RNA: mir-393 microRNA precursor family
Organism: Malus baccata
RNA sequence: AGAGGAGGCAUCCAAAGGGAUCGCAUUGAUCCCAGCUAGCAAUUUCUUUCCAUCGUUUGGUUUGGAUCAUGCUAUCCCUUUGGAUUUCUCCUU
Numbered sequence: 001a002g003a004g005g006a007g008g009c010a011u012c013c014a015a016a017g018g019g020a021u022c023g024c025a026u027u028g029a030u031c032c033c034a035g036c037u038a039g040c041a042a043u044u045u046c047u048u049u050c051c052a053u054c055g056u057u058u059g060g061u062u063u064g065g066a067u068c069a070u071g072c073u074a075u076c077c078c079u080u081u082g083g084a085u086u087u088c089u090c091c092u093u
Stems, first nucleotide, its partner, number of pairs: 002093005008087001010085012023072004028068005